[Rfam]
RNA sequence: UGGCACCCAAUGUGGGGCUUGGAUACUGGGGGACAACGUGAGGGUCUGAUGAUGGAAGAAAAAGGGGUGCACACCCGCUCAAAUAAUUUGGAGACGCUGUGGGACCCUGCCACGACCGAGCCGAAGGUAAGUUGGUCGUUCAAUCAUGGGGAAAGAAUUAAGAAAGCAUCAAAUUUAUGUGAUACAGUUAAGAGAAGCUCUACAGGCAAGACGAGUAAAGGUUAAAACUGAGGAUUUGUUUCAUUUCUUUGAUUUUGUAAAGGACAUUUGUCCCU
Numbered sequence: 001u002g003g004c005a006c007c008c009a010a011u012g013u014g015g016g017g018c019u020u021g022g023a024u025a026c027u028g029g030g031g032g033a034c035a036a037c038g039u040g041a042g043g044g045u046c047u048g049a050u051g052a053u054g055g056a057a058g059a060a061a062a063a064g065g066g067g068u069g070c071a072c073a074c075c076c077g078c079u080c081a082a083a084u085a086a087u088u089u090g091g092a093g094a095c096g097c098u099g100u101g102g103g104a105c106c107c108u109g110c111c112a113c114g115a116c117c118g119a120g121c122c123g124a125a126g127g128u129a130a131g132u133u134g135g136u137c138g139u140u141c142a143a144u145c146a147u148g149g150g151g152a153a154a155g156a157a158u159u160a161a162g163a164a165a166g167c168a169u170c171a172a173a174u175u176u177a178u179g180u181g182a183u184a185c186a187g188u189u190a191a192g193a194g195a196a197g198c199u200c201u202a203c204a205g206g207c208a209a210g211a212c213g214a215g216u217a218a219a220g221g222u223u224a225a226a227a228c229u230g231a232g233g234a235u236u237u238g239u240u241u242c243a244u245u246u247c248u249u250u251g252a253u254u255u256u257g258u259a260a261a262g263g264a265c266a267u268u269u270g271u272c273c274c275u
Base pairs, nucleotide, nucleotide: 006031007030008029012026013025014024037051038050039049085128087126088125089124095118096117098114099113100112101111102110136152137151139150140149141148142147159202160201162198210250211249213247214246215245219237220236221235222234223233260275262273263272264271265270